[Rfam]
RNA sequence: AGAUGAGAGAUACACCCCGCCCACAGGGGACUGUGGGCGACGCCAGGCCGGGGCCUCCCCAGCUUCGACCUGGUCGUGCCCUGGCGCACACAACCGGAGGCUCACACUCCGGAUCUCCUCACCGAUCGGA
Number, nucleotide and partner (000 for none) at each position: 001a000002g000003a000004u121005g120006a119007g118008a000009g117010a116011u000012a000013c000014a000015c000016c000017c000018c039019g038020c037021c036022c035023a034024c033025a032026g031027g000028g000029g000030a000031c026032u025033g024034u023035g022036g021037g020038c019039g018040a000041c000042g074043c073044c072045a071046g070047g069048c000049c067050g066051g065052g064053g063054c062055c000056u000057c000058c000059c000060c000061a000062g054063c053064u052065u051066c050067g049068a000069c047070c046071u045072g044073g043074u042075c000076g089077u088078g087079c086080c000081c000082u000083g000084g000085c000086g079087c078088a077089c076090a000091c000092a000093a000094c112095c111096g110097g109098a108099g107100g105101c000102u000103c000104a000105c100106a000107c099108u098109c097110c096111g095112g094113a000114u000115c000116u010117c009118c007119u006120c005121a004122c129123c128124g000125a000126u000127c000128g123129g122130a000

A member of the RNA family "Streptomyces RNA 5676" from Streptomyces mangrovisoli, 130 nucleotides long. The base pairs follow the family's consensus structure. It scores 135 bits against the family's covariance model. The source organism's lineage runs through Bacteria, Actinomycetota, Actinomycetes, Streptomycetaceae and Streptomyces. Identified by deep sequencing of transcriptome at the end of exponential growth phase. Appears longer on northern blot than sequencing transcript. This indicates processing step. Streptomyces specific. For this family Rfam cites "Deep sequencing-based identification of small non-coding RNAs in Streptomyces coelicolor" (Vockenhuber et al., RNA Biol, 2011).